[Rfam]
Description
The family of this 171-nucleotide RNA from Marinobacter confluentis is "Manganese Mn2+ riboswitch aptamer (yybP-ykoY)". This RNA was originally discovered in E. coli during a large scale screen and was named SraF. The family was later found to exist upstream of related families of protein genes in many bacteria, including the the yybP and ykoK genes in B. subtilis. The specific functions of these proteins are unknown, but this structured RNA element may be involved in their genetic regulation as a riboswitch. On this family, see Argaman et al., Curr Biol 2001: "Novel small RNA-encoding genes in the intergenic regions of Escherichia coli".
RNA sequence: UACCGCUUCGUUGGGGAGUAGCCUGCUUCCAGCACUCGGAAGAGUUCGCAUCAACAUACUUGGCCACAUGCCAUGGUGCGAACGCCUCUCGGUUGGCGAGACCAUCGAUAUGUCCAUGCCCAAGGUCGGGCGUGUGGACGUAUCGUGGACUCGAUUUGCCCGGCCGGAGAC
Numbered sequence: 001u002a003c004c005g006c007u008u009c010g011u012u013g014g015g016g017a018g019u020a021g022c023c024u025g026c027u028u029c030c031a032g033c034a035c036u037c038g039g040a041a042g043a044g045u046u047c048g049c050a051u052c053a054a055c056a057u058a059c060u061u062g063g064c065c066a067c068a069u070g071c072c073a074u075g076g077u078g079c080g081a082a083c084g085c086c087u088c089u090c091g092g093u094u095g096g097c098g099a100g101a102c103c104a105u106c107g108a109u110a111u112g113u114c115c116a117u118g119c120c121c122a123a124g125g126u127c128g129g130g131c132g133u134g135u136g137g138a139c140g141u142a143u144c145g146u147g148g149a150c151u152c153g154a155u156u157u158g159c160c161c162g163g164c165c166g167g168a169g170a171c
Stems, first nucleotide, its partner, number of pairs: 026042003044083010061073004089170002